[Rfam]
Nucleotides: 064
Stems, first nucleotide, its partner, number of pairs: 001064004006059003010055002013052002016049015
Number, partner (000 for none) and nucleotide at each position: 001064g002063g003062c004061c005000u006059c007058c008057c009000u010055c011054u012000u013052u014051g015000g016049g017048g018047u019046g020045a021044u022043c023042g024041a025040u026039c027038g028037u029036g030035g031000g032000g033000c034000u035030c036029c037028a038027u039026g040025a041024u042023c043022g044021a045020u046019c047018a048017c049016c050000a051014c052013a053000c054011a055010g056000u057008g058007g059006g060000u061004g062003g063002c064001c